[Rfam]
RNA sequence: GAAAAAAAAACCUUUUGAAUCAAGUAGUACAAUGAUUCAAAAGGUUCUCACAA
Numbered sequence: 001g002a003a004a005a006a007a008a009a010a011c012c013u014u015u016u017g018a019a020u021c022a023a024g025u026a027g028u029a030c031a032a033u034g035a036u037u038c039a040a041a042a043g044g045u046u047c048u049c050a051c052a053a
Stems, first nucleotide, its partner, number of pairs: 007048001009046014
RNA: Plastid-ccsA-ndhD-1 3UTR RNA